Rfam assigns this 108-nucleotide RNA sequence from Nyssa sinensis to the family "Small nucleolar RNA snoR109".
On this family, see Marker et al., Curr Biol 2002: "Experimental RNomics: identification of 140 candidates for small non-messenger RNAs in the plant Arabidopsis thaliana".
Pairs were carried over by alignment from the consensus structure, which was predicted with WAR.
Its family is annotated with RNA processing and nucleolus in the Gene Ontology.
The family's RNA type in Rfam is H/ACA-box small nucleolar RNA.
Lineage of the source: Eukaryota > Streptophyta > eudicotyledons > Nyssaceae > Nyssa.

[Rfam]
RNA sequence: CGGCUGUAGCUAUAUUGAUCCAACGGCUAAGAAGUUUACUGGCCGGUUGUUGUUUGAGAUUUCUUCAAAUCUCUAUCGACGUAUCUUCUUACCUAACUUCUCACAUUU
Numbered sequence: 001c002g003g004c005u006g007u008a009g010c011u012a013u014a015u016u017g018a019u020c021c022a023a024c025g026g027c028u029a030a031g032a033a034g035u036u037u038a039c040u041g042g043c044c045g046g047u048u049g050u051u052g053u054u055u056g057a058g059a060u061u062u063c064u065u066c067a068a069a070u071c072u073c074u075a076u077c078g079a080c081g082u083a084u085c086u087u088c089u090u091a092c093c094u095a096a097c098u099u100c101u102c103a104c105a106u107u108u
Stems, first nucleotide, its partner, number of pairs: 030101007041089002045085003049080004